About this RNA:
This 121-nucleotide sequence from Heterocephalus glaber belongs to the Rfam family "U11 spliceosomal RNA".

RNA sequence: GAAAAGGGCUUCCAUGCAUGGCUCCUGUUGGGCAACUCAACUGGUCUUCACAUGGAAUUAACAUCAAGAGAUUUCAAAAGCUUAAUUUGGGCAGCUGGUGGUCAUUGGUUCCCCUGCUCAA
Numbered sequence: 001g002a003a004a005a006g007g008g009c010u011u012c013c014a015u016g017c018a019u020g021g022c023u024c025c026u027g028u029u030g031g032g033c034a035a036c037u038c039a040a041c042u043g044g045u046c047u048u049c050a051c052a053u054g055g056a057a058u059u060a061a062c063a064u065c066a067a068g069a070g071a072u073u074u075c076a077a078a079a080g081c082u083u084a085a086u087u088u089g090g091g092c093a094g095c096u097g098g099u100g101g102u103c104a105u106u107g108g109u110u111c112c113c114c115u116g117c118u119c120a121a
Stems, first nucleotide, its partner, number of pairs: 008081004013020002026050002030046002033043002053076007089119004094115001097112002100110004
Dot-bracket structure: .......((((.((....)).....((..((.((.......)).))..))..(((((((..........))))))).)))).......((((.(..((.((((...))))))..)))))..
Its Rfam clan is "U1 clan". Its family is annotated with U11 snRNP, mRNA 5'-splice site recognition and pre-mRNA 5'-splice site binding in the Gene Ontology. The source organism's lineage runs through Eukaryota, Metazoa, Euteleostomi, Sarcopterygii and Heterocephalus. The literature on the family includes a 2004 paper in Proc Natl Acad Sci U S A by Schneider et al., "Identification of an evolutionarily divergent U11 small nuclear ribonucleoprotein particle in Drosophila". By type it is a spliceosomal small nuclear RNA.